[Rfam]
Rfam assigns this 46-nucleotide RNA sequence from Occallatibacter riparius to the family "Acido-Lenti-1 RNA". Pairs were carried over by alignment from the consensus structure, which is taken from published work. Rfam 15.1 lists 2,607 matches to the family in 171 species. The source organism's lineage runs through Bacteria, Terriglobia, Terriglobales, Acidobacteriaceae and Occallatibacter. By type it is a small RNA.
Nucleotides: 046
Stems, first nucleotide, its partner, number of pairs: 001020008033045005
Number, partner (000 for none) and nucleotide at each position: 001020c002019c003018c004017g005016g006015g007014a008013c009000u010000u011000c012000c013008g014007u015006c016005c017004c018003g019002g020001g021000c022000u023000a024000u025000u026000g027000u028000c029000g030000c031000g032000c033045g034044u035043u036042c037041c038000u039000c040000c041037g042036g043035a044034a045033c046000u